[Rfam]
Shown here is a 165-nucleotide RNA from Desulfomarina profundi, a member of the family "Group II catalytic intron D1-D4-3". On this family, see Bonen and Vogel, Trends Genet 2001: "The ins and outs of group II introns". It scores 130 bits against the family's covariance model. The source organism's lineage runs through Bacteria, Desulfobulbia, Desulfobulbales, Desulfobulbaceae and Desulfomarina. The base pairs follow the family's consensus structure.

RNA sequence: GAUUCCGUGAGGGAUGGUCUGAAGGAAGCCGGAUGGCAAAGAUAUGGGCCGACGAACAAAAACAUCAUAUAAGGCCGAGUCUCCGGGUAAGUCAGCACAACAUGAUUACGCCCCUGGAACAGGAGAUACGGUAAAUGAUGCGGUCGCAUAUUGGAAGUUCACGUU
Numbered sequence: 001g002a003u004u005c006c007g008u009g010a011g012g013g014a015u016g017g018u019c020u021g022a023a024g025g026a027a028g029c030c031g032g033a034u035g036g037c038a039a040a041g042a043u044a045u046g047g048g049c050c051g052a053c054g055a056a057c058a059a060a061a062a063c064a065u066c067a068u069a070u071a072a073g074g075c076c077g078a079g080u081c082u083c084c085g086g087g088u089a090a091g092u093c094a095g096c097a098c099a100a101c102a103u104g105a106u107u108a109c110g111c112c113c114c115u116g117g118a119a120c121a122g123g124a125g126a127u128a129c130g131g132u133a134a135a136u137g138a139u140g141c142g143g144u145c146g147c148a149u150a151u152u153g154g155a156a157g158u159u160c161a162c163g164u165u
Stems, first nucleotide, its partner, number of pairs: 002015005028165001030163002036158002041152006047145005063140006074132003079127006085113004091106004